RNA: UnaL2 LINE 3' element
RNA sequence: CGUACGAAUGACUGUAAGUCGCUUUCGAUAAAAGCGUCUGCUAAAUGGCAUAUA
Numbered sequence: 001c002g003u004a005c006g007a008a009u010g011a012c013u014g015u016a017a018g019u020c021g022c023u024u025u026c027g028a029u030a031a032a033a034g035c036g037u038c039u040g041c042u043a044a045a046u047g048g049c050a051u052a053u054a
Stems, first nucleotide, its partner, number of pairs: 013043001014041003020036006